Metazoan signal recognition particle RNA: a 299-nucleotide RNA sequence from Nannospalax galili. NCBI's taxonomy places the organism under Eukaryota, Eumetazoa, Craniata, Teleostomi, Nannospalax.
RNA sequence: GCUGGGAAUCGAACCCAGGUCCUCUGGAGGAACUUCAAGCAUUCUUAACCACUGAUUCAUCACUUGAGUUUAGGAGUUCUAGGCUGUAGUGUGCUAUGCCUAUAUAGGGUCUCUGCAGUAAGUUCAGCAUCAAUAUGGUGGCCUCCUGGGAGUAGAGGAUCACCAGGUUGCCUAAGGAGGCGUGAACUGGCCCAGGACAGAAAUGGAGUGAGUCAAAACUCCUGAGCUGCUCAGUAGUCAGACUGUACCUGUGAAUAGCCACUGCAUUCCAGCCUGGGCAACAUAGUGAGACCCCAGCU
Numbered sequence: 001g002c003u004g005g006g007a008a009u010c011g012a013a014c015c016c017a018g019g020u021c022c023u024c025u026g027g028a029g030g031a032a033c034u035u036c037a038a039g040c041a042u043u044c045u046u047a048a049c050c051a052c053u054g055a056u057u058c059a060u061c062a063c064u065u066g067a068g069u070u071u072a073g074g075a076g077u078u079c080u081a082g083g084c085u086g087u088a089g090u091g092u093g094c095u096a097u098g099c100c101u102a103u104a105u106a107g108g109g110u111c112u113c114u115g116c117a118g119u120a121a122g123u124u125c126a127g128c129a130u131c132a133a134u135a136u137g138g139u140g141g142c143c144u145c146c147u148g149g150g151a152g153u154a155g156a157g158g159a160u161c162a163c164c165a166g167g168u169u170g171c172c173u174a175a176g177g178a179g180g181c182g183u184g185a186a187c188u189g190g191c192c193c194a195g196g197a198c199a200g201a202a203a204u205g206g207a208g209u210g211a212g213u214c215a216a217a218a219c220u221c222c223u224g225a226g227c228u229g230c231u232c233a234g235u236a237g238u239c240a241g242a243c244u245g246u247a248c249c250u251g252u253g254a255a256u257a258g259c260c261a262c263u264g265c266a267u268u269c270c271a272g273c274c275u276g277g278g279c280a281a282c283a284u285a286g287u288g289a290g291a292c293c294c295c296a297g298c299u
Stems, first nucleotide, its partner, number of pairs: 001049001003047001004023004009018001011016001028046005052297002054294001057291001060289005068279007079272002082269002085266007093259005099253001107250004112245001113241002117238001119236002122232001125229004130224001131170004136165006143158002146155003171177002178223003182219002188215004198205002
For this family Rfam cites "Towards the structure of the mammalian signal recognition particle" (Wild et al., Curr Opin Struct Biol, 2002).
A search with the family's covariance model found it, with a score of 138 bits.
Rfam links the family to the GO terms SRP-dependent cotranslational protein targeting to membrane, signal sequence recognition and signal recognition particle, endoplasmic reticulum targeting.